[Rfam]
RNA: mir-9229 microRNA precursor family
RNA sequence: GAGACACCCUUAUGGGACAGGGCUUGCUUCAGUGGGACUUUGGUGCUCACUGAGUCUUCCCCCUGAGUGUGGCCCU
Numbered sequence: 001g002a003g004a005c006a007c008c009c010u011u012a013u014g015g016g017a018c019a020g021g022g023c024u025u026g027c028u029u030c031a032g033u034g035g036g037a038c039u040u041u042g043g044u045g046c047u048c049a050c051u052g053a054g055u056c057u058u059c060c061c062c063c064u065g066a067g068u069g070u071g072g073c074c075c076u
Stems, first nucleotide, its partner, number of pairs: 001075001003073001005071003009067004014062003019057001021056003029053008037044002
Dot-bracket structure: (.(.(((.((((.(((..(.(((.....((((((((((....)).))))))))))))..))).)))).))).).).